[Rfam]
RNA sequence: UGGAAGUGAUGAUAGAAAUUCAUAAGUCUGUCAAUCCACUGAUCUAAAUUGUGAUGACACGAUGAAUCCCGACAGGUUCUGAUCCA
Numbered sequence: 001u002g003g004a005a006g007u008g009a010u011g012a013u014a015g016a017a018a019u020u021c022a023u024a025a026g027u028c029u030g031u032c033a034a035u036c037c038a039c040u041g042a043u044c045u046a047a048a049u050u051g052u053g054a055u056g057a058c059a060c061g062a063u064g065a066a067u068c069c070c071g072a073c074a075g076g077u078u079c080u081g082a083u084c085c086a
Stems, first nucleotide, its partner, number of pairs: 001086004
The family of this 86-nucleotide RNA from Carnegiea gigantea is "Small nucleolar RNA snoR14".
The literature on the family includes a 2001 paper in RNA by Brown et al., "Multiple snoRNA gene clusters from Arabidopsis".
The base pairs follow the family's consensus structure.
Clan: SNORD110 clan.
NCBI's taxonomy places the organism under Eukaryota, Viridiplantae, Tracheophyta, Spermatophyta, Carnegiea.